[Rfam]
RNA sequence: GGGCGACCUGGCUGUGACAUCUGUCACCCCACUGCUCUCCAGGGUUGAUUCAGCUGAUCUGGCUGGCAAGGUGGGUGUCCCAAUGCUCCAUGUGUGUCCCUCCUGAAGCUGCAUAUUUGGUCACAGAGGAUGAUGUCCCCAAUACAGAUGGAACCAUUCAUAGGUAAAGGGUAUACGGUAGCUGCGCUCCCCUGUCACACCCUCCAAACAAGCUCAAGGUCCAUUUGUAGGAGAACAUAGGGUAGGUCAAGCUUCCAAGACUGCAGAAACACCCAAAUGAGGUGCAACUUUCCUUUUUUU
Numbered sequence: 001g002g003g004c005g006a007c008c009u010g011g012c013u014g015u016g017a018c019a020u021c022u023g024u025c026a027c028c029c030c031a032c033u034g035c036u037c038u039c040c041a042g043g044g045u046u047g048a049u050u051c052a053g054c055u056g057a058u059c060u061g062g063c064u065g066g067c068a069a070g071g072u073g074g075g076u077g078u079c080c081c082a083a084u085g086c087u088c089c090a091u092g093u094g095u096g097u098c099c100c101u102c103c104u105g106a107a108g109c110u111g112c113a114u115a116u117u118u119g120g121u122c123a124c125a126g127a128g129g130a131u132g133a134u135g136u137c138c139c140c141a142a143u144a145c146a147g148a149u150g151g152a153a154c155c156a157u158u159c160a161u162a163g164g165u166a167a168a169g170g171g172u173a174u175a176c177g178g179u180a181g182c183u184g185c186g187c188u189c190c191c192c193u194g195u196c197a198c199a200c201c202c203u204c205c206a207a208a209c210a211a212g213c214u215c216a217a218g219g220u221c222c223a224u225u226u227g228u229a230g231g232a233g234a235a236c237a238u239a240g241g242g243u244a245g246g247u248c249a250a251g252c253u254u255c256c257a258a259g260a261c262u263g264c265a266g267a268a269a270c271a272c273c274c275a276a277a278u279g280a281g282g283u284g285c286a287a288c289u290u291u292c293c294u295u296u297u298u299u300u
Stems, first nucleotide, its partner, number of pairs: 001089003006084001011081001016079010027066002029062003034059001036057002039053001097151002100147002103120004108116001121142001128138003181252003187245002190242006202233004208228005275300003279295004284288001